[Rfam]
Bacterial RNase P class A: a 408-nucleotide sequence from Paenibacillus lycopersici.
RNA sequence: AAAGUUUGACAGACAAUCGCUGGCGGCCUCGUUGCCGCGAGAGGAAAGUCCGGGCUCCAUAGGGCGAUGAUGCUGGAUAACGUCCAGUCGGCGCGAGCCGAAGGAUAGUGCCACAGAAAUGGACCGCCGAUGGCGGCGCCUUGCGCGCCGCACAGGCAAGGGUGGAACCGUGGUGUAAGAGACCACGAGGACCGUUGGCGACAACGGUGCUGGUAAACCCCAUCUGGAGCAAGACCGAGAGAACGCAGCAGCUUCGAGCUGCACCCCUGCCCGGGGCGCGUUCGGGUUGGUCGCUUGAGCCGAUUAGCAAUGAUCGGCCUAGAUAGAUGAUUGUCGCUUCAUAAGUGGGAGGGUAGCUCCCGUCUUACCACGCGAAGUACAGAACCCGGCUUACGGCAAACUUUCCAU
Numbered sequence: 001a002a003a004g005u006u007u008g009a010c011a012g013a014c015a016a017u018c019g020c021u022g023g024c025g026g027c028c029u030c031g032u033u034g035c036c037g038c039g040a041g042a043g044g045a046a047a048g049u050c051c052g053g054g055c056u057c058c059a060u061a062g063g064g065c066g067a068u069g070a071u072g073c074u075g076g077a078u079a080a081c082g083u084c085c086a087g088u089c090g091g092c093g094c095g096a097g098c099c100g101a102a103g104g105a106u107a108g109u110g111c112c113a114c115a116g117a118a119a120u121g122g123a124c125c126g127c128c129g130a131u132g133g134c135g136g137c138g139c140c141u142u143g144c145g146c147g148c149c150g151c152a153c154a155g156g157c158a159a160g161g162g163u164g165g166a167a168c169c170g171u172g173g174u175g176u177a178a179g180a181g182a183c184c185a186c187g188a189g190g191a192c193c194g195u196u197g198g199c200g201a202c203a204a205c206g207g208u209g210c211u212g213g214u215a216a217a218c219c220c221c222a223u224c225u226g227g228a229g230c231a232a233g234a235c236c237g238a239g240a241g242a243a244c245g246c247a248g249c250a251g252c253u254u255c256g257a258g259c260u261g262c263a264c265c266c267c268u269g270c271c272c273g274g275g276g277c278g279c280g281u282u283c284g285g286g287u288u289g290g291u292c293g294c295u296u297g298a299g300c301c302g303a304u305u306a307g308c309a310a311u312g313a314u315c316g317g318c319c320u321a322g323a324u325a326g327a328u329g330a331u332u333g334u335c336g337c338u339u340c341a342u343a344a345g346u347g348g349g350a351g352g353g354u355a356g357c358u359c360c361c362g363u364c365u366u367a368c369c370a371c372g373c374g375a376a377g378u379a380c381a382g383a384a385c386c387c388g389g390c391u392u393a394c395g396g397c398a399a400a401c402u403u404u405c406c407a408u
Stems, first nucleotide, its partner, number of pairs: 001404008010395001012335007020041002023038005046392003050389005055229004063272002069224004073087005088102001089100004103220002108218002110214003124161002126157003131152002169187006189210001191208007233292004241283006264276004299318008

Record summary
The source organism's lineage runs through Bacteria, Bacillati, Bacillota, Paenibacillaceae and Paenibacillus.